The record is a 130-nucleotide sequence from Trifolium medium, which matches "MIR397 microRNA precursor family" in Rfam. For this family Rfam cites "High throughput approaches reveal splicing of primary microRNA transcripts and tissue specific expression of mature microRNAs in Vitis vinifera" (Mica et al., BMC Genomics, 2009). The base pairs follow the family's consensus structure, which was predicted with WAR.

RNA sequence: UAAAAAAACAUGAUUGAGUGUAGUGUCGAUGAAAUCAAAUAUGCCAUAUUUGAUGUCAAAUAUCAUAUAGCAAGACACAACUUAGUCGCUAUUUAGAAGUUCAUCAACGCUGCACUCAAUGAUGUUUCUU
Numbered sequence: 001u002a003a004a005a006a007a008a009c010a011u012g013a014u015u016g017a018g019u020g021u022a023g024u025g026u027c028g029a030u031g032a033a034a035u036c037a038a039a040u041a042u043g044c045c046a047u048a049u050u051u052g053a054u055g056u057c058a059a060a061u062a063u064c065a066u067a068u069a070g071c072a073a074g075a076c077a078c079a080a081c082u083u084a085g086u087c088g089c090u091a092u093u094u095a096g097a098a099g100u101u102c103a104u105c106a107a108c109g110c111u112g113c114a115c116u117c118a119a120u121g122a123u124g125u126u127u128c129u130u
Base pairs, nucleotide, nucleotide: 006127007126008125009124010123011122013120014119015118016117017116018115019114020113021112022111023110024109025108026107028105030103031102032101